This 154-nucleotide sequence from Amborella trichopoda belongs to the Rfam family "MIR8565 microRNA precursor family".
[Rfam]
RNA sequence: CCUACACUCAUGUGUGUGAGACCCCAAAUGAUCACCAUUAAAUUUGAUACAGAUUUCUAAAAAAGUUAUCACAUGAGUGUGGGACUUAACUUUUCUAGAGAUCUGUGUCAAAUUUAAUAGUGAUCAUUUGGGGUUCUGCAUACAUGAGUGUGGG
Numbered sequence: 001c002c003u004a005c006a007c008u009c010a011u012g013u014g015u016g017u018g019a020g021a022c023c024c025c026a027a028a029u030g031a032u033c034a035c036c037a038u039u040a041a042a043u044u045u046g047a048u049a050c051a052g053a054u055u056u057c058u059a060a061a062a063a064a065g066u067u068a069u070c071a072c073a074u075g076a077g078u079g080u081g082g083g084a085c086u087u088a089a090c091u092u093u094u095c096u097a098g099a100g101a102u103c104u105g106u107g108u109c110a111a112a113u114u115u116a117a118u119a120g121u122g123a124u125c126a127u128u129u130g131g132g133g134u135u136c137u138g139c140a141u142a143c144a145u146g147a148g149u150g151u152g153g154g
Stems, first nucleotide, its partner, number of pairs: 002153012015140004020135009030125003034121002037118023061094008069082005